[Rfam]
Nucleotides: 075
Stems, first nucleotide, its partner, number of pairs: 001075004
Number, partner (000 for none) and nucleotide at each position: 001075c002074u003073c004072c005000u006000g007000u008000g009000a010000u011000g012000a013000c014000c015000u016000u017000g018000u019000u020000u021000u022000u023000g024000u025000g026000c027000c028000a029000c030000g031000u032000g033000u034000c035000u036000g037000g038000g039000c040000c041000a042000c043000u044000g045000a046000u047000c048000a049000a050000u051000a052000g053000u054000g055000a056000u057000g058000g059000g060000u061000u062000g063000a064000g065000g066000a067000a068000c069000u070000g071000a072004g073003g074002a075001g
The record is a 75-nucleotide RNA sequence from Oreochromis aureus, which matches "Small nucleolar RNA SNORD66" in Rfam. The family has 20 seed sequences and 1,346 matches in Rfam 15.1. The literature on the family includes a 2001 paper in EMBO J by Huttenhofer et al., "RNomics: an experimental approach that identifies 201 candidates for novel, small, non-messenger RNAs in mouse". Rfam's curators write: snoRNA HBII-142 is part of the C/D family of snoRNAs. It is the human orthologue of the mouse MBII-142 snoRNA and is predicted to guide 2'O-ribose methylation of small 18S rRNA at residue C1272. The family's RNA type in Rfam is C/D-box small nucleolar RNA. The family's consensus secondary structure was predicted with RNAalifold.